[Rfam]
RNA sequence: GAUGAAGCAAUAUGGAGAGGUCUUCGAUGCGUCAGUUUUAUUUGAAGUACUUUACCGCGACAGAAGGGUUGUCCUGGUUGGCUUGUCCGAGCGCGCCGCAGCGCUUAAAGAUGCUUGAAGAACUGAUGCAGUGGGAGGUGACUGCCUGACCUCGGAUUUCCGAAUUGCAGACAUCAUGUGUGACUGAGUAUUGGUGUUUAUCGCCGCGCCAGCAGAUAAUUCCUGCUGGCUUUUUUC
Numbered sequence: 001g002a003u004g005a006a007g008c009a010a011u012a013u014g015g016a017g018a019g020g021u022c023u024u025c026g027a028u029g030c031g032u033c034a035g036u037u038u039u040a041u042u043u044g045a046a047g048u049a050c051u052u053u054a055c056c057g058c059g060a061c062a063g064a065a066g067g068g069u070u071g072u073c074c075u076g077g078u079u080g081g082c083u084u085g086u087c088c089g090a091g092c093g094c095g096c097c098g099c100a101g102c103g104c105u106u107a108a109a110g111a112u113g114c115u116u117g118a119a120g121a122a123c124u125g126a127u128g129c130a131g132u133g134g135g136a137g138g139u140g141a142c143u144g145c146c147u148g149a150c151c152u153c154g155g156a157u158u159u160c161c162g163a164a165u166u167g168c169a170g171a172c173a174u175c176a177u178g179u180g181u182g183a184c185u186g187a188g189u190a191u192u193g194g195u196g197u198u199u200a201u202c203g204c205c206g207c208g209c210c211a212g213c214a215g216a217u218a219a220u221u222c223c224u225g226c227u228g229g230c231u232u233u234u235u236u237c
Stems, first nucleotide, its partner, number of pairs: 001175004007168005024135002027132001028130012041118002044114001046112001058080004062075002065072001084111001086109001089106002092103003152163002208230008
Dot-bracket structure: ((((..(((((............((.(((((((((((((.((.(.(...........((((((.(......).)).))))...(.(..((.(((......))).))..).)).)..)))))))))))))).).))................((........)))))))...))))................................((((((((.......)))))))).......
The family of this 237-nucleotide sequence from Citrobacter koseri is "SgrS RNA". The base pairs follow the family's consensus structure, which was predicted with RNAalifold. In sugar transport-related sRNA (SgrS) is induced under conditions of glucose phosphate stress in E.coli. This small RNA acts to negatively regulate the translation and stability of the ptsG mRNA, which encodes the major glucose transporter in E. coli. SgrS forms a specific ribonucleoprotein complex with RNAse E and the chaperone Hfq and acts by base pairing with the ptsG mRNA. The crucial base-pairs for action of SgrS are confined to the 6 nt region overlapping the Shine-Dalgarno sequence of the ptsG mRNA. On this family, see Vanderpool and Gottesman, J Bacteriol 2007: "The novel transcription factor SgrR coordinates the response to glucose-phosphate stress". The source organism's lineage runs through Bacteria, Pseudomonadota, Enterobacterales, Citrobacter and Citrobacter koseri.